RNA sequence: AUUCCGGUUGAUCCUGCCGGAGGCUACUGCUAUCGGAGUCCGAUUUAGCCAUGCUAGUCCACCGAUUCGUUCGGGGCGGAUAGCUGAGUAACACGUGGCCAACCUGCCCUGUGGAUGAGGAUAACCUCGCUAACGUGAGGCUAAUACUCAAUAGGAAAGAGCUACUGGAAAGUCCUCUUUCUGAAAUGUUCCGACGCCACAGGAUGGGGCCGCGGCUGAUUAGGUUGUUGGUGAGGUAAAGGCUCACCAAGCCGAUAAUCAGUAGCAGCCGUGAGAGCGGUAGCUGCCAGUCGUGUUCUGAGACAAGAACACGGGCCCUACGGGGCGCAGCAGGCGCGAAACCUUUACAAUGCACUAACGUGCGAUAAGGGGACUCCGAGUGUAAUCUUCCCACAAGGAAGGUUACUUUUCUGCACUGUAAGGAGGUGCAGGAACAAGGGGUGGGCAAGACUGCUGCCAGCCGCCGCGGUAAUAGCAGCAUCCCGAGUGGUAGUCAGUUUUAUUG
Dot-bracket structure: ...(((((.......))))).((((((((((.((((((((((.....(((.(((..(((..((((.....)))))))......(((.......(((((((..((...(((((((.((((.....((((((....))))))......))))....(((((((..((......)).)))))))......((....)).)))))))..))))))))).(((....(((..((((((((.......)))))))))))......)))..((((((((....))))...))))))).((((((..........)))))).((((....))))...)))))).).....(.(((...(((((....))))).)))).)))))))))..((((((((((.....))))))))))....(((((((.......)))))))......((((((.......((((.....((....)).......)))))))))).))))))))))..........
The record is a 505-nucleotide part of an RNA from Nanohaloarchaea archaeon H01, which matches "Archaeal small subunit ribosomal RNA" in Rfam. The match comes from Rfam's covariance-model search (1457 bits). The literature on the family includes a 2002 paper in BMC Bioinformatics by Cannone et al., "The comparative RNA web (CRW) site: an online database of comparative sequence and structure information for ribosomal, intron, and other RNAs". Gene Ontology terms of the family: ribosome and structural constituent of ribosome.